The family of this 119-nucleotide RNA from Kingdonia uniflora is "U5 spliceosomal RNA". Its family is annotated with spliceosomal tri-snRNP complex assembly and U5 snRNP in the Gene Ontology. A search with the family's covariance model found it, with a score of 70 bits. Pairs were carried over by alignment from the consensus structure, which is taken from published work.
[Rfam]
RNA sequence: AGCCAUGUGGUGAGUACAAAGCAAACUAUUCUUUCACCUUUUACUAAAGAAUAUCGUAUGCUCGCCACAAUAAGUGGAUUAACCUAAUUUUGUAGGGCUACUCCAUUUACUUGGAGUGU
Number, nucleotide and partner (000 for none) at each position: 001a000002g000003c077004c076005a075006u074007g000008u067009g066010g065011u064012g063013a062014g061015u060016a059017c000018a057019a000020a000021g000022c000023a000024a000025a000026c000027u053028a052029u051030u050031c049032u048033u047034u046035c000036a000037c000038c000039u000040u000041u000042u000043a000044c000045u000046a034047a033048a032049g031050a030051a029052u028053a027054u000055c000056g000057u018058a000059u016060g015061c014062u013063c012064g011065c010066c009067a008068c000069a000070a000071u000072a000073a000074g006075u005076g004077g003078a000079u000080u000081a000082a000083c000084c000085u000086a000087a000088u000089u000090u000091u000092g000093u000094a000095g119096g000097g000098c000099u118100a117101c116102u115103c114104c113105a000106u000107u000108u000109a000110c000111u000112u000113g104114g103115a102116g101117u100118g099119u095